[Rfam]
RNA sequence: UCAAACGGUAUUCGACGGUGAAUAAUAAAAAUGACAUUGCGACUCAUUCUAUUAUUGCUCGAGAAUACCCUUUGA
Dot-bracket structure: .......((((((...(((.(((((((......................))))))))))...)))))).......

Rfam assigns this 75-nucleotide RNA from Caenorhabditis remanei to the family "mir-234 microRNA precursor family". The literature on the family includes a 2003 paper in Genes Dev by Lim et al., "The microRNAs of Caenorhabditis elegans". Rfam links the family to the GO terms miRNA-mediated post-transcriptional gene silencing and RISC complex. The family is grouped with related families in Rfam's "mir-137 clan". The source organism's lineage runs through Eukaryota, Chromadorea, Rhabditina, Rhabditoidea and Caenorhabditis. Pairs were carried over by alignment from the consensus structure, which was predicted with RNAalifold.